[Rfam]
RNA sequence: ACCCUGUCUGGGGGGUGCCCGCAAGGGCAAGGCCAGCAGCAGAUUAGCCGGUUUAGUGCUGCUUUUCAAAAAAACACCGGCAGUC
Dot-bracket structure: .[[[...((((]]]...(((....))).....)))).(((((....[[[[[.......))))).............]]]]]....
Rfam assigns this 85-nucleotide RNA sequence from Rhodoferax antarcticus to the family "Proteo-phage-1 RNA".
A search with the family's covariance model found it, with a score of 61 bits.